The family of this 85-nucleotide RNA sequence from Paenibacillus donghaensis is "Group II catalytic intron D1-D4-1".
A search with the family's covariance model found it, with a score of 71 bits.
For this family Rfam cites "The ins and outs of group II introns" (Bonen and Vogel, Trends Genet, 2001).
The base pairs follow the family's consensus structure.

RNA sequence: UAACCCUGUUCGUGAGGACAGGCUGAACGCACAGAAGUCAGCAGACGUCAUAGUACGCAAGCUGUUGCAAUAGCUGCGGAAGGAC
Numbered sequence: 001u002a003a004c005c006c007u008g009u010u011c012g013u014g015a016g017g018a019c020a021g022g023c024u025g026a027a028c029g030c031a032c033a034g035a036a037g038u039c040a041g042c043a044g045a046c047g048u049c050a051u052a053g054u055a056c057g058c059a060a061g062c063u064g065u066u067g068c069a070a071u072a073g074c075u076g077c078g079g080a081a082g083g084a085c
Base pairs, nucleotide, nucleotide: 001025002024005022006021007020008019009018010017011016037046038045039044047085048084049083056078057077058076060075061074062073